[Rfam]
RNA sequence: GUUUGGAAGAGGAAGAAAUUGAGUAUCUAAGAGUAGUGGGAAUGGGAACAUUUGAGGAAAGCAUCCAUUGUCUUUCUCCACUAGAAAUGGGGAUGAAGAUAAUGUUUCUUGUUUUCCUAAUGCCUCCCAUUCCUAUUGUUCUUAGAUAUUCCUUCCUCUUCCUUUGAACU
Number, nucleotide and partner (000 for none) at each position: 001g000002u000003u000004u000005g000006g000007a000008a000009g161010a160011g159012g158013a157014a000015g155016a154017a153018a000019u000020u000021g151022a150023g149024u000025a000026u146027c145028u144029a143030a142031g141032a140033g139034u138035a137036g000037u135038g134039g133040g132041a131042a130043u129044g128045g127046g126047a125048a000049c122050a121051u120052u000053u000054g118055a000056g117057g116058a115059a114060a113061g112062c111063a000064u000065c000066c000067a000068u000069u000070g000071u000072c000073u000074u000075u000076c000077u000078c000079c000080a000081c000082u000083a000084g000085a000086a000087a000088u000089g000090g000091g000092g000093a000094u000095g000096a000097a000098g000099a000100u000101a000102a000103u000104g000105u000106u000107u000108c000109u000110u000111g062112u061113u060114u059115u058116c057117c056118u054119a000120a051121u050122g049123c000124c000125u047126c046127c045128c044129a043130u042131u041132c040133c039134u038135a037136u000137u035138g034139u033140u032141c031142u030143u029144a028145g027146a026147u000148a000149u023150u022151c021152c000153u017154u016155c015156c000157u013158c012159u011160u010161c009162c000163u000164u000165u000166g000167a000168a000169c000170u000